Small nucleolar RNA snoR2/U65: a 155-nucleotide RNA from Nicotiana attenuata.
The family has 11 seed sequences and 908 matches in Rfam 15.1.
By type it is an H/ACA-box small nucleolar RNA.
The match comes from Rfam's covariance-model search (118 bits).
The family's consensus secondary structure was predicted with WAR.
RNA sequence: GGUCCGAUGCCACGUCGACGGUAGCAAAAAUAAGCAAUGACCGACGAUGCUAUGAUUGGACCAAUAACAAGUUUUUAUUAAUAUUUCGCAUUUUGAUAGGAAUCUGUGGUGGAUUUUUCAUUCCUCACACGGAGCCGUUUUGUGCGAUUACAUAC
Number, nucleotide and partner (000 for none) at each position: 001g000002g061003u060004c059005c058006g057007a056008u055009g053010c000011c000012a000013c049014g048015u047016c046017g045018a000019c000020g042021g041022u040023a000024g035025c034026a000027a000028a000029a000030a000031u000032a000033a000034g025035c024036a000037a000038u000039g000040a022041c021042c020043g000044a000045c017046g016047a015048u014049g013050c000051u000052a000053u009054g000055a008056u007057u006058g005059g004060a003061c002062c000063a000064a000065u000066a000067a000068c000069a000070a000071g000072u000073u000074u000075u000076u000077a000078u000079u000080a000081a000082u000083a000084u000085u000086u147087c146088g145089c144090a143091u000092u000093u000094u000095g000096a000097u000098a000099g136100g135101a000102a000103u000104c132105u131106g130107u000108g128109g000110u127111g126112g125113a000114u000115u000116u000117u000118u000119c000120a000121u000122u000123c000124c000125u112126c111127a110128c108129a000130c106131g105132g104133a000134g000135c100136c099137g000138u000139u000140u000141u000142g000143u090144g089145c088146g087147a086148u000149u000150a000151c000152a000153u000154a000155c000